[Rfam]
RNA sequence: CCCUAGCUGGGAGGGGCCGCAAGGCGCACCCAGCGGCAGAUUAGCCGGUUAGUGCUGCUUUUCAAGAAAACACCGGCAGUC
Numbered sequence: 001c002c003c004u005a006g007c008u009g010g011g012a013g014g015g016g017c018c019g020c021a022a023g024g025c026g027c028a029c030c031c032a033g034c035g036g037c038a039g040a041u042u043a044g045c046c047g048g049u050u051a052g053u054g055c056u057g058c059u060u061u062u063c064a065a066g067a068a069a070a071c072a073c074c075g076g077c078a079g080u081c
Stems, first nucleotide, its partner, number of pairs: 001015004007033005016025003035059005044077005